Source information: Guanidine-II riboswitch aptamer (mini-ykkC): a 44-nucleotide RNA sequence from Natrinema altunense. On this family, see Weinberg et al., Nucleic Acids Res 2007: "Identification of 22 candidate structured RNAs in bacteria using the CMfinder comparative genomics pipeline". Pairs were carried over by alignment from the consensus structure, which is taken from published work. The source organism's lineage runs through Archaea, Halobacteria, Natrialbaceae, Natrinema and Natrinema altunense. Rfam's curators write: Simpler in structure and has fewer highly conserved nucleotide positions than the ykkC-yxkD leader. A search with the family's covariance model found it, with a score of 32 bits.
RNA sequence: GACCGAGGACGACCUCGAUGACAACGAGACCGAGGACGACCUCG
Numbered sequence: 001g002a003c004c005g006a007g008g009a010c011g012a013c014c015u016c017g018a019u020g021a022c023a024a025c026g027a028g029a030c031c032g033a034g035g036a037c038g039a040c041c042u043c044g
Stems, first nucleotide, its partner, number of pairs: 002019001004017005031044005